About this RNA
Mammalian CPEB3 ribozyme: an 80-nucleotide RNA sequence from Crocodylus porosus. The mammalian CPEB3 ribozyme is a self cleaving RNA located in the second intron of the CPEB3 gene which belongs to a family of genes regulating messenger RNA polyadenylation. This ribozyme is highly conserved and found only in mammals. The organism belongs to Crocodylus, within Eukaryota. A search with the family's covariance model found it, with a score of 41 bits.
RNA sequence: AGAGGUCACAAGCUUGAGGUCAUAGCAGAAGUGCUCAUGGCAUAACCCUGUCAGAUUCAAACAAAUUUGCAAGUUCUGAU
Numbered sequence: 001a002g003a004g005g006u007c008a009c010a011a012g013c014u015u016g017a018g019g020u021c022a023u024a025g026c027a028g029a030a031g032u033g034c035u036c037a038u039g040g041c042a043u044a045a046c047c048c049u050g051u052c053a054g055a056u057u058c059a060a061a062c063a064a065a066u067u068u069g070c071a072a073g074u075u076c077u078g079a080u
Stems, first nucleotide, its partner, number of pairs: 016048001018047003024080001026078005031043003052069006